[Rfam]
Nucleotides: 211
Stems, first nucleotide, its partner, number of pairs: 001019006022206005029063002043056005068138001070136004075087003080129004089118001092115001094113001121132003144177006153166003159192004180201005
Number, partner (000 for none) and nucleotide at each position: 001019u002018g003017g004016g005015g006014u007000c008000u009000a010000a011000u012000u013000a014006a015005c016004c017003c018002c019001a020000u021000a022206g023205g024204a025203u026202g027000u028000g029063a030062c031000a032000g033000a034000a035000u036000g037000a038000a039000c040000c041000g042000u043056u044055u045054g046053g047052u048000u049000a050000a051000u052047a053046c054045c055044g056043g057000u058000c059000a060000u061000u062030g063029u064000a065000u066000a067000g068138u069000a070136g071135g072134g073133a074000a075087g076086g077085c078000u079000g080129u081128g082127g083126u084000g085077g086076c087075c088000g089118c090000c091000a092115g093000a094113a095000a096000g097000a098000c099000u100000a101000g102000g103000a104000g105000a106000c107000u108000a109000g110000a111000g112000u113094u114000c115092u116000g117000a118089g119000a120000a121132c122131c123130c124000a125000u126083a127082c128081c129080a130123g131122g132121g133073u134072c135071c136070c137000g138068a139000a140000a141000g142000u143000u144177c145176a146175g147174a148173g149172g150000u151000a152000u153166u154165a155164c156000u157000a158000u159192u160191c161190u162189u163000a164155g165154u166153a167000u168000g169000a170000c171000c172149c173148c174147u175146c176145u177144g178000u179000u180201g181200g182199a183198g184197g185000u186000a187000a188000a189162a190161a191160g192159a193000u194000a195000a196000u197184c198183c199182u200181c201180c202026c203025a204024u205023c206022c207000a208000c209000c210000c211000a